[Rfam]
RNA: Ribosomal S15 leader
RNA sequence: ACGUCUUGCUGAUUUAGUGUUCGGCUUGACGCGAUUUUUAACACUAAACUUAAAAGGUAAUUAUUAUGUCUUUAUCUGCAGAGCAAAAAGCAGCAAUCGUUGCUGAAUAUGCAACAAAAGAA
Numbered sequence: 001a002c003g004u005c006u007u008g009c010u011g012a013u014u015u016a017g018u019g020u021u022c023g024g025c026u027u028g029a030c031g032c033g034a035u036u037u038u039u040a041a042c043a044c045u046a047a048a049c050u051u052a053a054a055a056g057g058u059a060a061u062u063a064u065u066a067u068g069u070c071u072u073u074a075u076c077u078g079c080a081g082a083g084c085a086a087a088a089a090g091c092a093g094c095a096a097u098c099g100u101u102g103c104u105g106a107a108u109a110u111g112c113a114a115c116a117a118a119a120g121a122a
Stems, first nucleotide, its partner, number of pairs: 008025005052075001054073004